The record is a 45-nucleotide RNA from Melanocharis versteri, which matches "Guanidine-II riboswitch aptamer (mini-ykkC)" in Rfam.
It scores 36 bits against the family's covariance model.

[Rfam]
Nucleotides: 045
Stems, first nucleotide, its partner, number of pairs: 001020008034045004
Number, partner (000 for none) and nucleotide at each position: 001020g002019c003018u004017c005016g006015g007014g008013g009000a010000c011000g012000g013008c014007c015006c016005c017004g018003g019002g020001u021000g022000a023000g024000g025000a026000u027000g028000g029000a030000g031000c032000u033000c034045g035044g036043g037042g038000a039000c040000g041000g042037c043036c044035c045034c